[Rfam]
RNA sequence: GGAGAUGGAUGGGCCCUGGUGGGCCCCGCGGCCUUCAAAGCCGCUGUGAGGCGCGCAGAACGUCUCGGGUGCGUUCGAUUCGCAUGCAUCUCC
Numbered sequence: 001g002g003a004g005a006u007g008g009a010u011g012g013g014c015c016c017u018g019g020u021g022g023g024c025c026c027c028g029c030g031g032c033c034u035u036c037a038a039a040g041c042c043g044c045u046g047u048g049a050g051g052c053g054c055g056c057a058g059a060a061c062g063u064c065u066c067g068g069g070u071g072c073g074u075u076c077g078a079u080u081c082g083c084a085u086g087c088a089u090c091u092c093c
Base pairs, nucleotide, nucleotide: 001093002092003091004090005089006088007087009085011026012025013024014023015022016021028044029043030042031041032040047067048066049065050064051063070084071083072082073081
The family of this 93-nucleotide sequence from Enteroscipio rubneri is "Selenocysteine transfer RNA". The match comes from Rfam's covariance-model search (75 bits). Clan: tRNA clan. The base pairs follow the family's consensus structure, which is taken from published work.